[Rfam]
RNA sequence: GCGUGGAGUAGAGGUGCGGGCAACAAUAGUACUUUCAGGGAGAGUGGUUCCAAUGAUCUGAAAGAAAAGGGUUGGCCGCCGAAGUAAUAAAAGCUACCAGGUUUUUAUUACUGGUCUUGCAUCGAAUAGGUGUUAGACUGUCACCAAGUUAAGUUUGGUGGAGUGCUAUCUCAUCU
Numbered sequence: 001g002c003g004u005g006g007a008g009u010a011g012a013g014g015u016g017c018g019g020g021c022a023a024c025a026a027u028a029g030u031a032c033u034u035u036c037a038g039g040g041a042g043a044g045u046g047g048u049u050c051c052a053a054u055g056a057u058c059u060g061a062a063a064g065a066a067a068a069g070g071g072u073u074g075g076c077c078g079c080c081g082a083a084g085u086a087a088u089a090a091a092a093g094c095u096a097c098c099a100g101g102u103u104u105u106u107a108u109u110a111c112u113g114g115u116c117u118u119g120c121a122u123c124g125a126a127u128a129g130g131u132g133u134u135a136g137a138c139u140g141u142c143a144c145c146a147a148g149u150u151a152a153g154u155u156u157g158g159u160g161g162a163g164u165g166c167u168a169u170c171u172c173a174u175c176u
Stems, first nucleotide, its partner, number of pairs: 006171001008169004016079004021074004032064008083112012113139005119133005141161007